Rfam assigns this 400-nucleotide RNA from Gilvibacter sp. SZ-19 to the family "transfer-messenger RNA". Lineage of the source: Bacteria > Pseudomonadati > Bacteroidota > Flavobacteriaceae > Gilvibacter. The family's consensus secondary structure is taken from published work.

[Rfam]
RNA sequence: GGGGCCGACUGGUUUUGACAGCGGGACCAAUUGAAAUGUAAGCAUAUCGAGCGUUGAACCACAGCUCGUUAAUCUCAUGAUUCACACUUUUUAAACGGCGAGAAUAACUACGCCCUAGCUGCAUAAUCUGAAUUAUAGUAGGAUAAUGCCUCGGUCUACAAGGUAGACAAGCAGGAACGCUCUCGAAAGCCUUGGUUUACGGCAUUCGAUAUAGAGCGUUCGUAAAAGUAAACCUAGCCGCUUUAGGGCUUUGAUAAGGCGGCGAAACUCAAAUUGAAGCUAAGCCUGUUCUUGGUAGUCUUUGACCGGGGCCAGGCCGACAAUCAAUUAAAGACUAAAUAUGUAGAAAGCAUUUGAAUUGCCUGUUUGGACGAGGGUUCGAAUCCCUCCGGCUCCACUU
Numbered sequence: 001g002g003g004g005c006c007g008a009c010u011g012g013u014u015u016u017g018a019c020a021g022c023g024g025g026a027c028c029a030a031u032u033g034a035a036a037u038g039u040a041a042g043c044a045u046a047u048c049g050a051g052c053g054u055u056g057a058a059c060c061a062c063a064g065c066u067c068g069u070u071a072a073u074c075u076c077a078u079g080a081u082u083c084a085c086a087c088u089u090u091u092u093a094a095a096c097g098g099c100g101a102g103a104a105u106a107a108c109u110a111c112g113c114c115c116u117a118g119c120u121g122c123a124u125a126a127u128c129u130g131a132a133u134u135a136u137a138g139u140a141g142g143a144u145a146a147u148g149c150c151u152c153g154g155u156c157u158a159c160a161a162g163g164u165a166g167a168c169a170a171g172c173a174g175g176a177a178c179g180c181u182c183u184c185g186a187a188a189g190c191c192u193u194g195g196u197u198u199a200c201g202g203c204a205u206u207c208g209a210u211a212u213a214g215a216g217c218g219u220u221c222g223u224a225a226a227a228g229u230a231a232a233c234c235u236a237g238c239c240g241c242u243u244u245a246g247g248g249c250u251u252u253g254a255u256a257a258g259g260c261g262g263c264g265a266a267a268c269u270c271a272a273a274u275u276g277a278a279g280c281u282a283a284g285c286c287u288g289u290u291c292u293u294g295g296u297a298g299u300c301u302u303u304g305a306c307c308g309g310g311g312c313c314a315g316g317c318c319g320a321c322a323a324u325c326a327a328u329u330a331a332a333g334a335c336u337a338a339a340u341a342u343g344u345a346g347a348a349a350g351c352a353u354u355u356g357a358a359u360u361g362c363c364u365g366u367u368u369g370g371a372c373g374a375g376g377g378u379u380c381g382a383a384u385c386c387c388u389c390c391g392g393c394u395c396c397a398c399u400u
Base pairs, nucleotide, nucleotide: 001396002395003394004393005392006391007390019369020368021367024364025363027361031358032357034355035354036353037352038351039350043343044342045341046340047339048068049067050066051065052064055084056083057082058081060079061078121149122148123147124146126144127143128142177219178218179217180216181215182214184208185207186206187205189203190202191201195233196232197231198230199229200228237263238262239261240260241259242258243257244256245255247281248280249279250278251277252276284317285316286315287314288313290311291310292309294307295306296305298335299334300333301332302331303330304329373389374388375387376386377385